[Rfam]
RNA sequence: AAAGCAGACCAAUCUUAUCGACUUAUAUUUAGUAUAAGUAGGAAAGUCUGGACACCAAAGAGUAGUAUAGCGGAUAGUAACCGUCCGAUGUAAGUCGAGGACAAGUGCAGCAGAAAGUAUGUACAGGUAAGGCUGUAGUGAAACCAGGUAAACUCUAUACGGUGCAAUGUCAUGUACAUUAGAGCUCGAGCGCUACUCGCGCGAUUCUAAGGGGUAGGCAGAUUGAUUUUAUAAGUAAUUGUAAAACUAGAUAAAUGAUAAGAGCCUUAUUUAUAAGGAACAGAAUCCAGCUUAACGGUCUGCUUUUUUU
Numbered sequence: 001a002a003a004g005c006a007g008a009c010c011a012a013u014c015u016u017a018u019c020g021a022c023u024u025a026u027a028u029u030u031a032g033u034a035u036a037a038g039u040a041g042g043a044a045a046g047u048c049u050g051g052a053c054a055c056c057a058a059a060g061a062g063u064a065g066u067a068u069a070g071c072g073g074a075u076a077g078u079a080a081c082c083g084u085c086c087g088a089u090g091u092a093a094g095u096c097g098a099g100g101a102c103a104a105g106u107g108c109a110g111c112a113g114a115a116a117g118u119a120u121g122u123a124c125a126g127g128u129a130a131g132g133c134u135g136u137a138g139u140g141a142a143a144c145c146a147g148g149u150a151a152a153c154u155c156u157a158u159a160c161g162g163u164g165c166a167a168u169g170u171c172a173u174g175u176a177c178a179u180u181a182g183a184g185c186u187c188g189a190g191c192g193c194u195a196c197u198c199g200c201g202c203g204a205u206u207c208u209a210a211g212g213g214g215u216a217g218g219c220a221g222a223u224u225g226a227u228u229u230u231a232u233a234a235g236u237a238a239u240u241g242u243a244a245a246a247c248u249a250g251a252u253a254a255a256u257g258a259u260a261a262g263a264g265c266c267u268u269a270u271u272u273a274u275a276a277g278g279a280a281c282a283g284a285a286u287c288c289a290g291c292u293u294a295a296c297g298g299u300c301u302g303c304u305u306u307u308u309u310u
Stems, first nucleotide, its partner, number of pairs: 001306010013263007021039008044293003048290005053164004060198004065160005070084004085099001086097004100155002105153002107149002168220004179210005190202004227246008